[Rfam]
RNA: Eukaryotic large subunit ribosomal RNA, nucleotides 1863 to 2349
Organism: Zymoseptoria tritici
RNA sequence: UAGAACAAUGUAGAUAAGGGAAGUCGGCAAAAUAGAUCCGUAACUUCGGGAAAAGGAUUGGCUCUAAGGGUUGGGCGCGUUGGGCCUUGGGCAGAUUCCCGGGGAGCAGGUCGGCACUAGCCUCACGGCCGGCGCCUUCCAGCACCCCGUGGCGGACGCCCUUGGCAGGCUUCGGCCGUCCGGCGCGCGCUUAACAACCAACUUAGAACUGGUACGGACAAGGGGAAUCUGACUGUCUAAUUAAAACAUAGCAUUGCGAUGGUCAGAAAGUGAUGUUGACGCAAUGUGAUUUCUGCCCAGUGCUCUGAAUGUCAAAGUGAAGAAAUUCAACCAAGCGCGGGUAAACGGCGGGAGUAACUAUGACUCUCUUAAGGUAGCCAAAUGCCUCGUCAUCUAAUUAGUGACGCGCAUGAAUGGAUUAACGAGAUUCCCACUGUCCCUAUCUACUAUCUAGCGAAACCACAGCCAAGGGAACGGGCUUGGCAGA
Numbered sequence: 001u002a003g004a005a006c007a008a009u010g011u012a013g014a015u016a017a018g019g020g021a022a023g024u025c026g027g028c029a030a031a032a033u034a035g036a037u038c039c040g041u042a043a044c045u046u047c048g049g050g051a052a053a054a055g056g057a058u059u060g061g062c063u064c065u066a067a068g069g070g071u072u073g074g075g076c077g078c079g080u081u082g083g084g085c086c087u088u089g090g091g092c093a094g095a096u097u098c099c100c101g102g103g104g105a106g107c108a109g110g111u112c113g114g115c116a117c118u119a120g121c122c123u124c125a126c127g128g129c130c131g132g133c134g135c136c137u138u139c140c141a142g143c144a145c146c147c148c149g150u151g152g153c154g155g156a157c158g159c160c161c162u163u164g165g166c167a168g169g170c171u172u173c174g175g176c177c178g179u180c181c182g183g184c185g186c187g188c189g190c191u192u193a194a195c196a197a198c199c200a201a202c203u204u205a206g207a208a209c210u211g212g213u214a215c216g217g218a219c220a221a222g223g224g225g226a227a228u229c230u231g232a233c234u235g236u237c238u239a240a241u242u243a244a245a246a247c248a249u250a251g252c253a254u255u256g257c258g259a260u261g262g263u264c265a266g267a268a269a270g271u272g273a274u275g276u277u278g279a280c281g282c283a284a285u286g287u288g289a290u291u292u293c294u295g296c297c298c299a300g301u302g303c304u305c306u307g308a309a310u311g312u313c314a315a316a317g318u319g320a321a322g323a324a325a326u327u328c329a330a331c332c333a334a335g336c337g338c339g340g341g342u343a344a345a346c347g348g349c350g351g352g353a354g355u356a357a358c359u360a361u362g363a364c365u366c367u368c369u370u371a372a373g374g375u376a377g378c379c380a381a382a383u384g385c386c387u388c389g390u391c392a393u394c395u396a397a398u399u400a401g402u403g404a405c406g407c408g409c410a411u412g413a414a415u416g417g418a419u420u421a422a423c424g425a426g427a428u429u430c431c432c433a434c435u436g437u438c439c440c441u442a443u444c445u446a447c448u449a450u451c452u453a454g455c456g457a458a459a460c461c462a463c464a465g466c467c468a469a470g471g472g473a474a475c476g477g478g479c480u481u482g483g484c485a486g487a
Base pairs, nucleotide, nucleotide: 001453002452003451004450010447011446012445013444014443015442016441018439019438020437035059036058037057038056039055044049060210061209063207064206065205066204067203068202069199070198071197072196073195075188076187077186078185079184080183081182082181083180084166085165086164089161090160091159097154099152100151101148102147103146104145106143107142109140110139113136114135115134117132118131120129121128122127211215223432224431225430226429227428228427229426230424231423234248235247236246251287252286253285254284255283256282257281258280262274263273264272265271291418292417293416295349296348297347300346301345302342303341304340305339307338310337311336312335318329319328320327321326350368351367352366353365354364355363369373389405390404391403392402393401466483467482468481469480470479